Small nucleolar RNA Z13/snr52: a 96-nucleotide RNA from Golovinomyces cichoracearum. NCBI's taxonomy places the organism under Eukaryota, Opisthokonta, leotiomyceta, sordariomyceta, Golovinomyces. The match comes from Rfam's covariance-model search (79 bits).
Nucleotides: 096
Stems, first nucleotide, its partner, number of pairs: 003095003023073004
Number, partner (000 for none) and nucleotide at each position: 001000u002000c003095g004094u005093u006000c007000u008000u009000u010000a011000u012000g013000a014000u015000g016000a017000a018000a019000a020000a021000c022000u023073c024072g025071g026070a027000u028000a029000u030000u031000a032000u033000u034000a035000u036000u037000u038000u039000g040000u041000c042000u043000c044000c045000a046000a047000g048000a049000g050000c051000g052000c053000a054000a055000a056000a057000u058000c059000a060000u061000g062000u063000g064000g065000a066000c067000a068000u069000c070026u071025c072024c073023g074000u075000u076000g077000c078000c079000u080000u081000c082000c083000u084000u085000c086000u087000g088000a089000u090000u091000c092000a093005a094004a095003u096000u
Rfam links the family to the GO terms RNA processing and nucleolus.